[Rfam]
RNA sequence: UGAGCCGGCCGGGCGGCCGCGUCGGCGGGGAGACCCGCCGCCGAGGAAAGUCCGGACUCCGCAGGGCAGGGUGGUUGUUAACGGCAACCUGGGGCGACCCACGGGACAGUGCCACAGAGAACAGACCGCCCGGACGCGCGAGCGGACCGGGUAAGGGUGAAACGGUGGUGUAAGAGACCACCAGCAUCCCGGGUGACCGGGAUGGCUCGGUAAACCCCACCUGGAGCAAGGCCAAGAAGGUCCCGCCCUUCCGGGCGGGGCCUGCGCGAGUGCUUGAGGGCUGCCCGCCCGAGCUCGCGGGUAGGCCGCACGAGCCCGUCGGCGACGGCGGGCCCAGAUGGAUGGCCGCCGAAGGGAACGCCGCGAGGCGUCCCGGAACAGGAUCCGGCUUACAGGCCGGCUCAUCCC
Numbered sequence: 001u002g003a004g005c006c007g008g009c010c011g012g013g014c015g016g017c018c019g020c021g022u023c024g025g026c027g028g029g030g031a032g033a034c035c036c037g038c039c040g041c042c043g044a045g046g047a048a049a050g051u052c053c054g055g056a057c058u059c060c061g062c063a064g065g066g067c068a069g070g071g072u073g074g075u076u077g078u079u080a081a082c083g084g085c086a087a088c089c090u091g092g093g094g095c096g097a098c099c100c101a102c103g104g105g106a107c108a109g110u111g112c113c114a115c116a117g118a119g120a121a122c123a124g125a126c127c128g129c130c131c132g133g134a135c136g137c138g139c140g141a142g143c144g145g146a147c148c149g150g151g152u153a154a155g156g157g158u159g160a161a162a163c164g165g166u167g168g169u170g171u172a173a174g175a176g177a178c179c180a181c182c183a184g185c186a187u188c189c190c191g192g193g194u195g196a197c198c199g200g201g202a203u204g205g206c207u208c209g210g211u212a213a214a215c216c217c218c219a220c221c222u223g224g225a226g227c228a229a230g231g232c233c234a235a236g237a238a239g240g241u242c243c244c245g246c247c248c249u250u251c252c253g254g255g256c257g258g259g260g261c262c263u264g265c266g267c268g269a270g271u272g273c274u275u276g277a278g279g280g281c282u283g284c285c286c287g288c289c290c291g292a293g294c295u296c297g298c299g300g301g302u303a304g305g306c307c308g309c310a311c312g313a314g315c316c317c318g319u320c321g322g323c324g325a326c327g328g329c330g331g332g333c334c335c336a337g338a339u340g341g342a343u344g345g346c347c348g349c350c351g352a353a354g355g356g357a358a359c360g361c362c363g364c365g366a367g368g369c370g371u372c373c374c375g376g377a378a379c380a381g382g383a384u385c386c387g388g389c390u391u392a393c394a395g396g397c398c399g400g401c402u403c404a405u406c407c408c
Stems, first nucleotide, its partner, number of pairs: 001404010011393001012350007020043002023040006048391003052388005057226004064286004069222005074088005089103001090101004104217002109215002111211003126156002128152006135145001164182006184206001185204008230307004266298006278290004314333008
The family of this 408-nucleotide RNA sequence from Allokutzneria albata is "Bacterial RNase P class A". The source organism's lineage runs through Bacteria, Bacillati, Actinomycetota, Pseudonocardiaceae and Allokutzneria.